[Rfam]
Nucleotides: 088
Stems, first nucleotide, its partner, number of pairs: 001088004006084003011079001013077005020070003025063001026061005032055003036051004
Number, partner (000 for none) and nucleotide at each position: 001088g002087a003086a004085g005000a006084u007083c008082a009000u010000u011079u012000a013077u014076c015075a016074u017073g018000a019000u020070u021069g022068u023000a024000a025063g026061a027060g028059g029058a030057g031000g032055g033054g034053c035000c036051c037050a038049a039048g040000a041000a042000u043000c044000g045000a046000u047000c048039c049038u050037u051036g052000a053034g054033c055032c056000a057030c058029u059028c060027c061026u062000g063025u064000g065000c066000u067000g068022a069021c070020a071000u072000c073017c074016a075015u076014g077013a078000c079011a080000u081000u082008u083007g084006a085004c086003u087002u088001u
This 88-nucleotide RNA sequence from Lytechinus variegatus belongs to the Rfam family "mir-4850 microRNA precursor family". Pairs were carried over by alignment from the consensus structure, which was predicted with RNAalifold. It is one of the family's seed sequences.